[Rfam]
RNA sequence: CUCACGGCUUCGUUAGGAAAAACCAUAAUGCCGCCUGAAUUCCGUCCACCUCCCGCCGUUCGCAGGUGCGAGGGUUUCUGCAUUGGUUGACCCGGUCCUUUCGGUACCGGAUUCCUCAGCCCCCAGCCCCCCGGGGUCGUCAGGAUCGGGUCUAUUCUUCCUGGUGUUUCUUCCUCUCCGGCUGUCUCCAAACCGGAACCCGACUUAAGGGCCGUUCACACGGCCCUUUU
Numbered sequence: 001c002u003c004a005c006g007g008c009u010u011c012g013u014u015a016g017g018a019a020a021a022a023c024c025a026u027a028a029u030g031c032c033g034c035c036u037g038a039a040u041u042c043c044g045u046c047c048a049c050c051u052c053c054c055g056c057c058g059u060u061c062g063c064a065g066g067u068g069c070g071a072g073g074g075u076u077u078c079u080g081c082a083u084u085g086g087u088u089g090a091c092c093c094g095g096u097c098c099u100u101u102c103g104g105u106a107c108c109g110g111a112u113u114c115c116u117c118a119g120c121c122c123c124c125a126g127c128c129c130c131c132c133g134g135g136g137u138c139g140u141c142a143g144g145a146u147c148g149g150g151u152c153u154a155u156u157c158u159u160c161c162u163g164g165u166g167u168u169u170c171u172u173c174c175u176c177u178c179c180g181g182c183u184g185u186c187u188c189c190a191a192a193c194c195g196g197a198a199c200c201c202g203a204c205u206u207a208a209g210g211g212c213c214g215u216u217c218a219c220a221c222g223g224c225c226c227u228u229u230u
Stems, first nucleotide, its partner, number of pairs: 037167001039051001081166006089152011102139004107134004119127002180225005
Shown here is a 230-nucleotide RNA from Afipia carboxidovorans, a member of the family "Bradyrhizobiaceae sRNA BjrC174". Lineage of the source: Bacteria > Pseudomonadati > Alphaproteobacteria > Nitrobacteraceae > Afipia carboxidovorans.